Rfam assigns this 37-nucleotide sequence from Salarias fasciatus to the family "Guanidine-II riboswitch aptamer (mini-ykkC)". The literature on the family includes a 2007 paper in Nucleic Acids Res by Weinberg et al., "Identification of 22 candidate structured RNAs in bacteria using the CMfinder comparative genomics pipeline". Lineage of the source: Eukaryota > Osteoglossocephalai > Ctenosquamata > Acanthomorphata > Salarias. The match comes from Rfam's covariance-model search (35 bits).

[Rfam]
RNA sequence: GUCCCGGGACGACCCGGGACGACCCGGGACGACCCGG
Numbered sequence: 001g002u003c004c005c006g007g008g009a010c011g012a013c014c015c016g017g018g019a020c021g022a023c024c025c026g027g028g029a030c031g032a033c034c035c036g037g
Base pairs, nucleotide, nucleotide: 001020002019003018004017005016006015007014008013024037025036026035027034028033